RNA sequence: UCGGUCCCGGUUCACGAGCAGCCUCCGGCUGCCGACCCGGUGCC
Numbered sequence: 001u002c003g004g005u006c007c008c009g010g011u012u013c014a015c016g017a018g019c020a021g022c023c024u025c026c027g028g029c030u031g032c033c034g035a036c037c038c039g040g041u042g043c044c
Stems, first nucleotide, its partner, number of pairs: 003044003007040004015034002019031005
RNA: L31-Actinobacteria ribosomal protein leader
Organism: Kitasatospora sp. MMS16-BH015